Annotation:
This 123-nucleotide RNA from Cicer arietinum belongs to the Rfam family "Small nucleolar RNA SNORD14". NCBI's taxonomy places the organism under Eukaryota, Spermatophyta, eudicotyledons, Fabaceae, Cicer. About the family: U14 small nucleolar RNA (U14 snoRNA) is required for early cleavages of eukaryotic precursor rRNAs. In yeasts, this molecule possess a stem-loop region (known as the Y-domain) which is essential for function. For this family Rfam cites "An essential domain in Saccharomyces cerevisiae U14 snoRNA is absent in vertebrates, but conserved in other yeasts" (Samarsky et al., Nucleic Acids Res, 1996). Its family is annotated with RNA processing and nucleolus in the Gene Ontology. It is annotated as a C/D-box small nucleolar RNA.
RNA sequence: GACCAAUGAUGAUAAUUUUAAGGCUUGUUUCUCAAAACAUUCGCAGUGGCCGCCUAAGAGCUUUCGCCUACGCCAAGGCUUGAGAGCUAAUGCUGCUAUUUCCUUCCUUGGAUGUCUGAGGUC
Numbered sequence: 001g002a003c004c005a006a007u008g009a010u011g012a013u014a015a016u017u018u019u020a021a022g023g024c025u026u027g028u029u030u031c032u033c034a035a036a037a038c039a040u041u042c043g044c045a046g047u048g049g050c051c052g053c054c055u056a057a058g059a060g061c062u063u064u065c066g067c068c069u070a071c072g073c074c075a076a077g078g079c080u081u082g083a084g085a086g087c088u089a090a091u092g093c094u095g096c097u098a099u100u101u102c103c104u105u106c107c108u109u110g111g112a113u114g115u116c117u118g119a120g121g122u123c
Base pairs, nucleotide, nucleotide: 001123002122003121004120060087061086062085063084064083065082